[Rfam]
RNA sequence: CUGUUCGCUGUUGGAGCAUCAUCAAGAUUCACAAAUCAUCAAGUAUUCGUGUAAAUAAACCCAUUUAUGAUUAGAUUUUUGAUGUAUGUAUGAGAAUCUUGAUGAUGCUGCAGCUGCAAUCAG
Numbered sequence: 001c002u003g004u005u006c007g008c009u010g011u012u013g014g015a016g017c018a019u020c021a022u023c024a025a026g027a028u029u030c031a032c033a034a035a036u037c038a039u040c041a042a043g044u045a046u047u048c049g050u051g052u053a054a055a056u057a058a059a060c061c062c063a064u065u066u067a068u069g070a071u072u073a074g075a076u077u078u079u080u081g082a083u084g085u086a087u088g089u090a091u092g093a094g095a096a097u098c099u100u101g102a103u104g105a106u107g108c109u110g111c112a113g114c115u116g117c118a119a120u121c122a123g
Stems, first nucleotide, its partner, number of pairs: 010114004015109016032092002
Description:
A member of the RNA family "mir-172 microRNA precursor family", 123 nucleotides long. Its family is annotated with miRNA-mediated post-transcriptional gene silencing and RISC complex in the Gene Ontology. It is one of the family's seed sequences. Rfam describes the family as follows. mir-172 has been experimentally verified in Arabidopsis thaliana.